A member of the RNA family "TPP riboswitch aptamer (THI element)" from Thermovenabulum gondwanense, 104 nucleotides long. Taxonomically the source falls in Thermovenabulum (Bacteria, Bacillota, Clostridia, Thermosediminibacterales). The match comes from Rfam's covariance-model search (72 bits).

RNA sequence: GAUGCGUGCUGGGGGAGCCGAAAGGCUGAGAGGAAGCUUAAAUGCUUCGACCCCUCGAACCUGACCGGGAUAAUCCCCGCGUAGGGAAGCACAGAACCGAAAAU
Numbered sequence: 001g002a003u004g005c006g007u008g009c010u011g012g013g014g015g016a017g018c019c020g021a022a023a024g025g026c027u028g029a030g031a032g033g034a035a036g037c038u039u040a041a042a043u044g045c046u047u048c049g050a051c052c053c054c055u056c057g058a059a060c061c062u063g064a065c066c067g068g069g070a071u072a073a074u075c076c077c078c079g080c081g082u083a084g085g086g087a088a089g090c091a092c093a094g095a096a097c098c099g100a101a102a103a104u
Stems, first nucleotide, its partner, number of pairs: 006092005011054004017026003033048005060085004066079004